[Rfam]
Shown here is a 143-nucleotide RNA from Dorea sp. AF36-15AT, a member of the family "Ribosomal protein L10 leader". It scores 75 bits against the family's covariance model. Taxonomically the source falls in Dorea (Bacteria, Bacillati, Clostridia, Lachnospiraceae).
RNA sequence: UAAUCUACUAAAAGACUGCCGAAGACAGUAGGUGUCCGCAAGGACGUAAGCGUGAUGCGCGCCUACCGAGGAAGAAUAGAUUAGUACGUCAUGUAUGAAUUUCAACCUCUGUGUCUUUGACACGGAGGUUUUUUAUAUCUAUC
Numbered sequence: 001u002a003a004u005c006u007a008c009u010a011a012a013a014g015a016c017u018g019c020c021g022a023a024g025a026c027a028g029u030a031g032g033u034g035u036c037c038g039c040a041a042g043g044a045c046g047u048a049a050g051c052g053u054g055a056u057g058c059g060c061g062c063c064u065a066c067c068g069a070g071g072a073a074g075a076a077u078a079g080a081u082u083a084g085u086a087c088g089u090c091a092u093g094u095a096u097g098a099a100u101u102u103c104a105a106c107c108u109c110u111g112u113g114u115c116u117u118u119g120a121c122a123c124g125g126a127g128g129u130u131u132u133u134u135a136u137a138u139c140u141a142u143c
Stems, first nucleotide, its partner, number of pairs: 028066006034045003106128010
Background
Its family is annotated with regulation of gene expression in the Gene Ontology.